[Rfam]
RNA sequence: CCUGCGCCAGGACGGAAAGACCCCAUGGAGCUUUACUCCAGCUUGAUACUGGGAUUCGGUAUUGCAUGUACAGGAUAGGUGGGAGACUAAGAAUUCACAACGCCAGUUGUGAAGGAGUCAUUGUUGGGAUACCACCCUUGCAGUAUUGGAUUUCUAACCAGCCACCGUGAUCCGGUGGUGGGACAAUGUCAGGCGGGGAGUUUGACUGGGGCGGUCGCCUCCGAAAGGGUAUCGGAGGCGCUCAAAGGUCUUCUCAGAAUGGUUGGAAACCAUUCGCAGAGUGCAAAGGCAAAAGAAGGCUUGACUGUGACACCGACGGGUGGAGCAGGUACGAAAGUAGGACUUAGUGAUCCGGUGGUAUAAAGUGGGAUUGCCAUCGCUCAACGGAUAAAAGCUACCCUGGGGAUAACAGGCUUAUCACUCCCAAGAGUUCACAUCGACGGAGUGGUUUGGCACCUCGAUGUCGGCUCAUCGCAUCCUGGGGCUGUAGUAGGUCCCAAGGGUUGGGCUGUUCGCCCAUUAAAGCGGUACGCGAGCUGGGUUCAGAACGUCGUGAGACAGUUCGGUCCCUAUCCGGCGUGGGCGCA
Numbered sequence: 001c002c003u004g005c006g007c008c009a010g011g012a013c014g015g016a017a018a019g020a021c022c023c024c025a026u027g028g029a030g031c032u033u034u035a036c037u038c039c040a041g042c043u044u045g046a047u048a049c050u051g052g053g054a055u056u057c058g059g060u061a062u063u064g065c066a067u068g069u070a071c072a073g074g075a076u077a078g079g080u081g082g083g084a085g086a087c088u089a090a091g092a093a094u095u096c097a098c099a100a101c102g103c104c105a106g107u108u109g110u111g112a113a114g115g116a117g118u119c120a121u122u123g124u125u126g127g128g129a130u131a132c133c134a135c136c137c138u139u140g141c142a143g144u145a146u147u148g149g150a151u152u153u154c155u156a157a158c159c160a161g162c163c164a165c166c167g168u169g170a171u172c173c174g175g176u177g178g179u180g181g182g183a184c185a186a187u188g189u190c191a192g193g194c195g196g197g198g199a200g201u202u203u204g205a206c207u208g209g210g211g212c213g214g215u216c217g218c219c220u221c222c223g224a225a226a227g228g229g230u231a232u233c234g235g236a237g238g239c240g241c242u243c244a245a246a247g248g249u250c251u252u253c254u255c256a257g258a259a260u261g262g263u264u265g266g267a268a269a270c271c272a273u274u275c276g277c278a279g280a281g282u283g284c285a286a287a288g289g290c291a292a293a294a295g296a297a298g299g300c301u302u303g304a305c306u307g308u309g310a311c312a313c314c315g316a317c318g319g320g321u322g323g324a325g326c327a328g329g330u331a332c333g334a335a336a337g338u339a340g341g342a343c344u345u346a347g348u349g350a351u352c353c354g355g356u357g358g359u360a361u362a363a364a365g366u367g368g369g370a371u372u373g374c375c376a377u378c379g380c381u382c383a384a385c386g387g388a389u390a391a392a393a394g395c396u397a398c399c400c401u402g403g404g405g406a407u408a409a410c411a412g413g414c415u416u417a418u419c420a421c422u423c424c425c426a427a428g429a430g431u432u433c434a435c436a437u438c439g440a441c442g443g444a445g446u447g448g449u450u451u452g453g454c455a456c457c458u459c460g461a462u463g464u465c466g467g468c469u470c471a472u473c474g475c476a477u478c479c480u481g482g483g484g485c486u487g488u489a490g491u492a493g494g495u496c497c498c499a500a501g502g503g504u505u506g507g508g509c510u511g512u513u514c515g516c517c518c519a520u521u522a523a524a525g526c527g528g529u530a531c532g533c534g535a536g537c538u539g540g541g542u543u544c545a546g547a548a549c550g551u552c553g554u555g556a557g558a559c560a561g562u563u564c565g566g567u568c569c570c571u572a573u574c575c576g577g578c579g580u581g582g583g584c585g586c587a
Stems, first nucleotide, its partner, number of pairs: 001583008010575003014570002022404004027400002029396005035201004042193007051154016068137001078136005085119003094113008158181003162178006204216004217239006240385001242342002248300006254280002257275006281290002305328004311322003330339003353379007362371001413454003417451001418448007428438002465540001466538004470532001471529005478503002481498006505519005546564004550559003